RNA: mir-6131 microRNA precursor family
Organism: Macaca mulatta
RNA sequence: CAUCCCGCCUUCUCUGCUUUGGUCGGGUGGUGCCCUCCUUCCAUGGGUGGAGCCAGAGAUGGCGGGCUCUGGCUGGUUAGAUGGGAGUGGACAGAGAGGUCUGGGAUCC
Numbered sequence: 001c002a003u004c005c006c007g008c009c010u011u012c013u014c015u016g017c018u019u020u021g022g023u024c025g026g027g028u029g030g031u032g033c034c035c036u037c038c039u040u041c042c043a044u045g046g047g048u049g050g051a052g053c054c055a056g057a058g059a060u061g062g063c064g065g066g067c068u069c070u071g072g073c074u075g076g077u078u079a080g081a082u083g084g085g086a087g088u089g090g091a092c093a094g095a096g097a098g099g100u101c102u103g104g105g106a107u108c109c
Stems, first nucleotide, its partner, number of pairs: 003106005008094001011091001012087004018081009028071003032067004037062002040059002044055003
Dot-bracket structure: ..((((((..(((((..(((((((((.(((.((((.((.((..(((......)))..)).)).)))).))).)))))))))..))))...)..).......)))))...